[Rfam]
RNA sequence: AUGUUAUCACGAAAGGCAGAGGGAUUAGACCCGGCGAAGCCUUAGCAACCCUUUAUCCAUUAAAGAAGGUGCUAAAUUCUACCGCGCAAAGCGGACAGAUAACCA
Numbered sequence: 001a002u003g004u005u006a007u008c009a010c011g012a013a014a015g016g017c018a019g020a021g022g023g024a025u026u027a028g029a030c031c032c033g034g035c036g037a038a039g040c041c042u043u044a045g046c047a048a049c050c051c052u053u054u055a056u057c058c059a060u061u062a063a064a065g066a067a068g069g070u071g072c073u074a075a076a077u078u079c080u081a082c083c084g085c086g087c088a089a090a091g092c093g094g095a096c097a098g099a100u101a102a103c104c105a
Stems, first nucleotide, its partner, number of pairs: 003103006013043005021032003026081004044073004049069002051065004077097001082094004
Rfam assigns this 105-nucleotide sequence from Flavobacterium sp. to the family "SAM riboswitch aptamer (S box leader)". Rfam links the family to the GO term regulation of gene expression. The source organism's lineage runs through Bacteria, Pseudomonadati, Flavobacteriia, Flavobacteriaceae and Flavobacterium. A search with the family's covariance model found it, with a score of 80 bits.